Actinobacteria sRNA Ms_IGR-5: a 179-nucleotide RNA sequence from Streptomyces sp. ISL-11. Rfam classes the family as a small RNA.

RNA sequence: ACACGAGAAGGGAGGUGGUUCGGAACAUGAUUUCUCUCCGGACGCGUGAGGUGACUGCGGGCUAGCGCCCGUCGUCGCGCCAAGCGCAGCGCCGGCACCGCCGGCCAAUCCCAGCAGUCACCCGAUCCGUGGGCCGCCGAGUCGUCCGCUCGGCACCGUCGCGCCGCAGGGCGCGGCGG
Dot-bracket structure: ..............(((((..................................))))).((((.((..(((.(((.............))).)))....)).))))................((.((.((((..(((((((.......))))))......)..)))).)).))......
Numbered sequence: 001a002c003a004c005g006a007g008a009a010g011g012g013a014g015g016u017g018g019u020u021c022g023g024a025a026c027a028u029g030a031u032u033u034c035u036c037u038c039c040g041g042a043c044g045c046g047u048g049a050g051g052u053g054a055c056u057g058c059g060g061g062c063u064a065g066c067g068c069c070c071g072u073c074g075u076c077g078c079g080c081c082a083a084g085c086g087c088a089g090c091g092c093c094g095g096c097a098c099c100g101c102c103g104g105c106c107a108a109u110c111c112c113a114g115c116a117g118u119c120a121c122c123c124g125a126u127c128c129g130u131g132g133g134c135c136g137c138c139g140a141g142u143c144g145u146c147c148g149c150u151c152g153g154c155a156c157c158g159u160c161g162c163g164c165c166g167c168a169g170g171g172c173g174c175g176g177c178g179g
Stems, first nucleotide, its partner, number of pairs: 015058005060106004065101002069095003073091003123173002126170002129167004135161001136154006
A search with the family's covariance model found it, with a score of 81 bits.